Rfam assigns this 146-nucleotide RNA sequence from Mustela putorius to the family "Small nucleolar RNA SNORA15". A search with the family's covariance model found it, with a score of 81 bits. NCBI's taxonomy places the organism under Eukaryota, Deuterostomia, Chordata, Laurasiatheria, Mustela putorius.

RNA sequence: GCAUGGCUGAGUACUGUGUUCUUUUUAUCAGUUGUUUACAUAGCCAGACAUCAUGGGAAAAAAAAAACAAAAAACAUUCUUUAAAGUGGUUAUGAUGGAUUGCUAAGUUUUUUCAUAGCAUAUCGUCAUUAAAGGGAAAUAGAAAU
Numbered sequence: 001g002c003a004u005g006g007c008u009g010a011g012u013a014c015u016g017u018g019u020u021c022u023u024u025u026u027a028u029c030a031g032u033u034g035u036u037u038a039c040a041u042a043g044c045c046a047g048a049c050a051u052c053a054u055g056g057g058a059a060a061a062a063a064a065a066a067a068c069a070a071a072a073a074a075c076a077u078u079c080u081u082u083a084a085a086g087u088g089g090u091u092a093u094g095a096u097g098g099a100u101u102g103c104u105a106a107g108u109u110u111u112u113u114c115a116u117a118g119c120a121u122a123u124c125g126u127c128a129u130u131a132a133a134g135g136g137a138a139a140u141a142g143a144a145a146u
Base pairs, nucleotide, nucleotide: 002055003054004053005052006051014043015042016041017040018039019038077138078137079134080133081132082131083130084129093128094127095126096125097124098123101120102119103118104117105116
About the family: ACA15 is a member of the H/ACA class of snoRNA that guide the sites of modification of uridines to pseudouridines. The literature on the family includes a 2001 paper in EMBO J by Huttenhofer et al., "RNomics: an experimental approach that identifies 201 candidates for novel, small, non-messenger RNAs in mouse". Pairs were carried over by alignment from the consensus structure, which was predicted with RNAfold. Rfam 15.1 lists 974 matches to the family in 624 species.